[Rfam]
Shown here is a 122-nucleotide sequence from Mesorhizobium hungaricum, a member of the family "Rhizobiales sRNA Atu_C8". The match comes from Rfam's covariance-model search (98 bits). The family's RNA type in Rfam is small RNA. The base pairs follow the family's consensus structure, which was predicted with CMfinder.
RNA sequence: CACCAUGAAGACGGCACUCAUUCUCGUAGGAAGGCGCGUGGGCAAGGCGGUGUAACCGCCAGGCGAAAACCUCCCAUGCGCAACACACAGGCUCCCUCGGGGGCCUUUUUUAUUAUCCAAAC
Numbered sequence: 001c002a003c004c005a006u007g008a009a010g011a012c013g014g015c016a017c018u019c020a021u022u023c024u025c026g027u028a029g030g031a032a033g034g035c036g037c038g039u040g041g042g043c044a045a046g047g048c049g050g051u052g053u054a055a056c057c058g059c060c061a062g063g064c065g066a067a068a069a070c071c072u073c074c075c076a077u078g079c080g081c082a083a084c085a086c087a088c089a090g091g092c093u094c095c096c097u098c099g100g101g102g103g104c105c106u107u108u109u110u111u112a113u114u115a116u117c118c119a120a121a122c
Base pairs, nucleotide, nucleotide: 029118030117031116034081035080036079037078038077039076040075041074042073046060047059048058049057050056063070087107089106090105091104092103093102094101095100